Record summary
MIR398 microRNA precursor family: a 106-nucleotide sequence from Rosa chinensis.

RNA sequence: GAAAGUCCUACAGGGGCGACCUGAGAACACACGAUUAGGUACUCUCACUUCAGGAUUGUGGUGAGGGUGUUCACAUGUGGUCUCAGGUCACUCCUAUGGGACUUCU
Numbered sequence: 001g002a003a004a005g006u007c008c009u010a011c012a013g014g015g016g017c018g019a020c021c022u023g024a025g026a027a028c029a030c031a032c033g034a035u036u037a038g039g040u041a042c043u044c045u046c047a048c049u050u051c052a053g054g055a056u057u058g059u060g061g062u063g064a065g066g067g068u069g070u071u072c073a074c075a076u077g078u079g080g081u082c083u084c085a086g087g088u089c090a091c092u093c094c095u096a097u098g099g100g101a102c103u104u105c106u
Stems, first nucleotide, its partner, number of pairs: 007100002012095003016091001018089002023084004028079004
Gene Ontology terms of the family: miRNA-mediated post-transcriptional gene silencing and RISC complex. The source organism's lineage runs through Eukaryota, Viridiplantae, Magnoliopsida, Mesangiospermae and Rosa. Pairs were carried over by alignment from the consensus structure, which was predicted with WAR.